[Rfam]
Shown here is a 172-nucleotide RNA from Sulfobacillus thermosulfidooxidans, a member of the family "M-box riboswitch aptamer (ykoK leader)". The match comes from Rfam's covariance-model search (138 bits). The family has 159 seed sequences and 1,095 matches in Rfam 15.1.
RNA sequence: UAAAGUCCUCGUUAGGCGAGGCGUCUACAUCAACACAGGCCACUGCUCCGAACCGUCCAAAGACGCUAAGGAGUAGAACAGAGGUUGCCGGAUUAAGGCUUCUUCCAAGGUGGCUGAAUCUUAUCAAGGUUCUCACGUGAUGUAGUGCCGAAGCUCCACCAGGGGGAUUACG
Dot-bracket structure: ....(((((((([.(((..(((..((((((((......(((((.(((((....((((....))))....)))))......((((..(((......])))..))))....))))).(((((.......))))).....)))))))).)))...)))..))...))))))....